[Rfam]
Small nucleolar RNA SNORA61: a 129-nucleotide sequence from Nannospalax galili. The organism belongs to Nannospalax, within Eukaryota. Rfam links the family to the GO terms RNA processing and nucleolus. Rfam 15.1 lists 881 matches to the family in 421 species. It scores 99 bits against the family's covariance model. Rfam's curators write: ACA61 is a member of the H/ACA class of snoRNA that guide the sites of modification of uridines to pseudouridines.
RNA sequence: ACCUUCUGGUUUCCUUUCCCACUGGAUCUCAACACUGGUCUUGGUGGUCAUAAAGGACAAAGAGCAUGUUGAAGCUGGCCUAACAGCCUUGUAGACUGCUAUAAGCAUGAUGGCUAGAUUCAAAGAGGG
Numbered sequence: 001a002c003c004u005u006c007u008g009g010u011u012u013c014c015u016u017u018c019c020c021a022c023u024g025g026a027u028c029u030c031a032a033c034a035c036u037g038g039u040c041u042u043g044g045u046g047g048u049c050a051u052a053a054a055g056g057a058c059a060a061a062g063a064g065c066a067u068g069u070u071g072a073a074g075c076u077g078g079c080c081u082a083a084c085a086g087c088c089u090u091g092u093a094g095a096c097u098g099c100u101a102u103a104a105g106c107a108u109g110a111u112g113g114c115u116a117g118a119u120u121c122a123a124a125g126a127g128g129g
Base pairs, nucleotide, nucleotide: 005057006056007055019047020046021045022044023043025040026039027038028037075117076116077115078114079113080112090107091106092105